[Rfam]
RNA sequence: GCCGGAGGGUUCAGAAAGCAGAGUCUGUGCAGUGAGGCUCUGCCGAUACCCCUCUCCGAGAAGAAAUGGACGGCUAAAGAGCAGCUCGGGAUUACAGACCCAAAACCGAGCUGACUGCUCCAUCCUACAACA
Numbered sequence: 001g002c003c004g005g006a007g008g009g010u011u012c013a014g015a016a017a018g019c020a021g022a023g024u025c026u027g028u029g030c031a032g033u034g035a036g037g038c039u040c041u042g043c044c045g046a047u048a049c050c051c052c053u054c055u056c057c058g059a060g061a062a063g064a065a066a067u068g069g070a071c072g073g074c075u076a077a078a079g080a081g082c083a084g085c086u087c088g089g090g091a092u093u094a095c096a097g098a099c100c101c102a103a104a105a106c107c108g109a110g111c112u113g114a115c116u117g118c119u120c121c122a123u124c125c126u127a128c129a130a131c132a
Stems, first nucleotide, its partner, number of pairs: 002060001004057006018043002021040006068125003080116002082113007092105002
Small Cajal body specific RNA 4: a 132-nucleotide RNA from Leptobrachium leishanense.
The base pairs follow the family's consensus structure, which was predicted with RNAfold.
scaRNAs are a specific class of small nuclear RNAs which localise to the Cajal bodies and guide the modification of RNA polymerase II transcribed spliceosomal RNAs U1, U2, U4, U5 and U12. ACA26 belongs to the H/ACA box class of guide RNAs as it has the predicted hairpin-hinge-hairpin-tail structure, conserved H/ACA-box motifs and is found associated with GAR1.
It is annotated as a small Cajal body RNA.
Its Rfam clan is "SCARNA4 clan".
The match comes from Rfam's covariance-model search (66 bits).